About this RNA
skipping-rope RNA: an 80-nucleotide RNA sequence. The base pairs follow the family's consensus structure, which is taken from published work.

RNA sequence: AUUAAAUGAGGUGGACAAUGGCAUCCACGCACCUAUAUUGGUUAAAAGAGAUGAAAGUACAGCCAGACUUUCCAUUUAAU
Numbered sequence: 001a002u003u004a005a006a007u008g009a010g011g012u013g014g015a016c017a018a019u020g021g022c023a024u025c026c027a028c029g030c031a032c033c034u035a036u037a038u039u040g041g042u043u044a045a046a047a048g049a050g051a052u053g054a055a056a057g058u059a060c061a062g063c064c065a066g067a068c069u070u071u072c073c074a075u076u077u078a079a080u
Stems, first nucleotide, its partner, number of pairs: 001080008011028005019065004030048001031042003053072005